[Rfam]
Description:
The family of this 190-nucleotide sequence from Marmota marmota is "U2 spliceosomal RNA". A search with the family's covariance model found it, with a score of 97 bits. From the family's description: U2 is a small nuclear RNA (snRNA) component of the spliceosome (involved in pre-mRNA splicing). Complementary binding between U2 snRNA (in an area lying towards the 5' end but 3' to hairpin I) and the branchpoint sequence (BPS) of the intron results the bulging out of an unpaired adenosine, on the BPS, which initiates a nucleophilic attack at the intronic 5' splice site, thus starting the first of two transesterification reactions that mediate splicing.
RNA sequence: AACACUUCUCAGUCUUUUGGCUGAGAUCUAAAUGGCGUCUAUCUUUUCUUGUCAAUUUAAUAUGUGACACGUCCUCUAUCUCAGGACAAGAUAUAAAAUGGAUUUUUGGAGCAGGGAGAUGGAAUCAGAGCUCCAUCUACUCCAUGCAUCCAUCUGGUAUUUCAGUCCCUCUAGGAAUGGUGUACCCUAC
Numbered sequence: 001a002a003c004a005c006u007u008c009u010c011a012g013u014c015u016u017u018u019g020g021c022u023g024a025g026a027u028c029u030a031a032a033u034g035g036c037g038u039c040u041a042u043c044u045u046u047u048c049u050u051g052u053c054a055a056u057u058u059a060a061u062a063u064g065u066g067a068c069a070c071g072u073c074c075u076c077u078a079u080c081u082c083a084g085g086a087c088a089a090g091a092u093a094u095a096a097a098a099u100g101g102a103u104u105u106u107u108g109g110a111g112c113a114g115g116g117a118g119a120u121g122g123a124a125u126c127a128g129a130g131c132u133c134c135a136u137c138u139a140c141u142c143c144a145u146g147c148a149u150c151c152a153u154c155u156g157g158u159a160u161u162u163c164a165g166u167c168c169c170u171c172u173a174g175g176a177a178u179g180g181u182g183u184a185c186c187c188u189a190c
Stems, first nucleotide, its partner, number of pairs: 007026003011022004050069005071087005115143004121137002128133001146183005153175005